Shown here is a 274-nucleotide sequence from Medicago truncatula, a member of the family "MIR2655 microRNA precursor family".
RNA sequence: CCCUUAACUAUUAAAAGUUUCGUUUUGAUCCCUUAACUUAUUUUUUGGUUUCGUUUUGGUCACUUAACUUAUUUUUUGAUUUUGUUUUGGUCUUUAACUCUAAUACAUUCAUCCUAACAUAAAGGACCAAAGUGGUUGACGAGGAAGAGUUAAGGGACCAAAACGAAACCAAAAAAUAAAUUAAGGGAUCAAAACGAAACUUUUAAUAGUUAAGGGACCAAACGAAAUCAAAAAGUAAGUUAAGGGACCAACCAAACUUUUAAUAGUUAAGGGA
Numbered sequence: 001c002c003c004u005u006a007a008c009u010a011u012u013a014a015a016a017g018u019u020u021c022g023u024u025u026u027g028a029u030c031c032c033u034u035a036a037c038u039u040a041u042u043u044u045u046u047g048g049u050u051u052c053g054u055u056u057u058g059g060u061c062a063c064u065u066a067a068c069u070u071a072u073u074u075u076u077u078g079a080u081u082u083u084g085u086u087u088u089g090g091u092c093u094u095u096a097a098c099u100c101u102a103a104u105a106c107a108u109u110c111a112u113c114c115u116a117a118c119a120u121a122a123a124g125g126a127c128c129a130a131a132g133u134g135g136u137u138g139a140c141g142a143g144g145a146a147g148a149g150u151u152a153a154g155g156g157a158c159c160a161a162a163a164c165g166a167a168a169c170c171a172a173a174a175a176a177u178a179a180a181u182u183a184a185g186g187g188a189u190c191a192a193a194a195c196g197a198a199a200c201u202u203u204u205a206a207u208a209g210u211u212a213a214g215g216g217a218c219c220a221a222a223c224g225a226a227a228u229c230a231a232a233a234a235g236u237a238a239g240u241u242a243a244g245g246g247a248c249c250a251a252c253c254a255a256a257c258u259u260u261u262a263a264u265a266g267u268u269a270a271g272g273g274a
Stems, first nucleotide, its partner, number of pairs: 002272007023251001027249001029247001031245013045231012
The organism belongs to Medicago, within Eukaryota. Its family is annotated with miRNA-mediated post-transcriptional gene silencing and RISC complex in the Gene Ontology.